[Rfam]
RNA sequence: CUGGAGGACUAAGAAAGUGGAGCCGGUGCUGCUCUAUUGGCUCCACUGAUACCAUCCUCCUAAAGUAAACGGUGGAAGAACAGGGCCUGCCUGGGAGACAAAGCCAGGGCCUACUUCCUCUGCCUACAAGG
Numbered sequence: 001c002u003g004g005a006g007g008a009c010u011a012a013g014a015a016a017g018u019g020g021a022g023c024c025g026g027u028g029c030u031g032c033u034c035u036a037u038u039g040g041c042u043c044c045a046c047u048g049a050u051a052c053c054a055u056c057c058u059c060c061u062a063a064a065g066u067a068a069a070c071g072g073u074g075g076a077a078g079a080a081c082a083g084g085g086c087c088u089g090c091c092u093g094g095g096a097g098a099c100a101a102a103g104c105c106a107g108g109g110c111c112u113a114c115u116u117c118c119u120c121u122g123c124c125u126a127c128a129a130g131g
Stems, first nucleotide, its partner, number of pairs: 003060006010051002018045007026035001028033001071124006078117001082112003086108004
RNA: Small Cajal body specific RNA 15
Organism: Crotophaga sulcirostris